Exoribonuclease-resistant RNA (xrRNA) plant-infecting virus (class 3): a 51-nucleotide RNA sequence from Polerovirus CBTV2.
[Rfam]
RNA sequence: AGACAGCCCUUAGAUUUGUUGCAAUAGAGGGAGUCACAUAGUCAAAUCUUU
Numbered sequence: 001a002g003a004c005a006g007c008c009c010u011u012a013g014a015u016u017u018g019u020u021g022c023a024a025u026a027g028a029g030g031g032a033g034u035c036a037c038a039u040a041g042u043c044a045a046a047u048c049u050u051u
Base pairs, nucleotide, nucleotide: 002034007031008030010029011026014047015046016045017044018043

The organism belongs to Polerovirus CBTV2, within Viruses.